[Rfam]
RNA sequence: UUUGUAUCCGGAGCAGACAGGAUGAGAACCUCCGAAGGAGGUUUGAGCCGAGCGAAGCGAGACAACGUUGCCUGCAACGGCCCGAAGGGCGCGUCCCGCAGGGAUGCGUCAUCCUCUCUCACCGACCA
Dot-bracket structure: ..............(((.(((.(.........((.......((((...((.......))......(((((....)))))...))))...))...................).))).))).........